[Rfam]
RNA sequence: UUCUUAUUGAAUGAUGACUGUCACGUGUUAUAUUCUGUUUGGUUAAUGAAAACAACGAUGUAUUUCAUCUUUUAAUUAAACUGAAGAUAAGAUGGGAGACCAAAAAUAC
Numbered sequence: 001u002u003c004u005u006a007u008u009g010a011a012u013g014a015u016g017a018c019u020g021u022c023a024c025g026u027g028u029u030a031u032a033u034u035c036u037g038u039u040u041g042g043u044u045a046a047u048g049a050a051a052a053c054a055a056c057g058a059u060g061u062a063u064u065u066c067a068u069c070u071u072u073u074a075a076u077u078a079a080a081c082u083g084a085a086g087a088u089a090a091g092a093u094g095g096g097a098g099a100c101c102a103a104a105a106a107u108a109c
Base pairs, nucleotide, nucleotide: 021097022096025093026092029089030088031087033085034084035083038080039079040078
MIR1520 microRNA precursor family: a 109-nucleotide RNA from Glycine soja. Its family is annotated with miRNA-mediated post-transcriptional gene silencing and RISC complex in the Gene Ontology. A search with the family's covariance model found it, with a score of 61 bits.